[Rfam]
RNA: Small nucleolar RNA SNORD26
RNA sequence: CUGCGGGGAUGAUCACCCUGAACUCUCUUGCUGAUUGCCCUGUGGAGAAGCUUCUGAACAGGCUCUGAGUGGC
Numbered sequence: 001c002u003g004c005g006g007g008g009a010u011g012a013u014c015a016c017c018c019u020g021a022a023c024u025c026u027c028u029u030g031c032u033g034a035u036u037g038c039c040c041u042g043u044g045g046a047g048a049a050g051c052u053u054c055u056g057a058a059c060a061g062g063c064u065c066u067g068a069g070u071g072g073c
Base pairs, nucleotide, nucleotide: 001072002071003070004069